[Rfam]
RNA sequence: AGCCAAUGAUGAGCUCUUUUUGAAUUUUCUGACACCUCGUAUGAAAACUGCUUGCGGUUGUUGAUUACGGAGACGAGCUGAGGCUU
Numbered sequence: 001a002g003c004c005a006a007u008g009a010u011g012a013g014c015u016c017u018u019u020u021u022g023a024a025u026u027u028u029c030u031g032a033c034a035c036c037u038c039g040u041a042u043g044a045a046a047a048c049u050g051c052u053u054g055c056g057g058u059u060g061u062u063g064a065u066u067a068c069g070g071a072g073a074c075g076a077g078c079u080g081a082g083g084c085u086u
Stems, first nucleotide, its partner, number of pairs: 001085004047058004
A member of the RNA family "Small nucleolar RNA SNORD60" from Pogona vitticeps, 86 nucleotides long. The family's RNA type in Rfam is C/D-box small nucleolar RNA. Taxonomically the source falls in Pogona (Eukaryota, Eumetazoa, Craniata, Amniota). The base pairs follow the family's consensus structure, which was predicted with PFOLD.